[Rfam]
RNA sequence: UUCUUUCGAGUCUGUAGUUGCGGACGAUCUUCGUCUCAGUCCAUGGCAGAUGCGGCCGAAAGGAUCCACGUAAGCCCUGCCGUGCGCAGGACGAUCAUGGCGUAUCCUAGAAGUAAGUCGCACCGCCUGUCAGAUGAGCGGCAUAGGGCCGCGCAGGCGAGAGGGUGGCGCGAAAGCCAAGCCCCGGUGUGCGAGUGUGGGGUCAAAGACUAGGUCAGUCGAAAGAA
Numbered sequence: 001u002u003c004u005u006u007c008g009a010g011u012c013u014g015u016a017g018u019u020g021c022g023g024a025c026g027a028u029c030u031u032c033g034u035c036u037c038a039g040u041c042c043a044u045g046g047c048a049g050a051u052g053c054g055g056c057c058g059a060a061a062g063g064a065u066c067c068a069c070g071u072a073a074g075c076c077c078u079g080c081c082g083u084g085c086g087c088a089g090g091a092c093g094a095u096c097a098u099g100g101c102g103u104a105u106c107c108u109a110g111a112a113g114u115a116a117g118u119c120g121c122a123c124c125g126c127c128u129g130u131c132a133g134a135u136g137a138g139c140g141g142c143a144u145a146g147g148g149c150c151g152c153g154c155a156g157g158c159g160a161g162a163g164g165g166u167g168g169c170g171c172g173a174a175a176g177c178c179a180a181g182c183c184c185c186g187g188u189g190u191g192c193g194a195g196u197g198u199g200g201g202g203u204c205a206a207a208g209a210c211u212a213g214g215u216c217a218g219u220c221g222a223a224a225g226a227a
Base pairs, nucleotide, nucleotide: 001227002226003225004224005223006222007221008220009219012218013217014216015212016211017210018209019208043198044197045196046056049106050105051104052103053102054101065100066099070095075090076089098205119191120190121189122188123187124159125158126157127156128155129154130153163184164183165182166181170177171176
raiA RNA: a 227-nucleotide RNA from Eggerthellaceae bacterium zg-893.